[Rfam]
RNA sequence: UCGCGCAGUACGGGAGAGACCAUCGUUCGAUGGCGCCGACGGAGCAACCGCCCCGGAAACUCUCAGGCAAAAGGACCGUGCCGCGCGU
Numbered sequence: 001u002c003g004c005g006c007a008g009u010a011c012g013g014g015a016g017a018g019a020c021c022a023u024c025g026u027u028c029g030a031u032g033g034c035g036c037c038g039a040c041g042g043a044g045c046a047a048c049c050g051c052c053c054c055g056g057a058a059a060c061u062c063u064c065a066g067g068c069a070a071a072a073g074g075a076c077c078g079u080g081c082c083g084c085g086c087g088u
Stems, first nucleotide, its partner, number of pairs: 006083001008081006020033004035068003038064002042062003048056002
RNA: Glycine riboswitch aptamer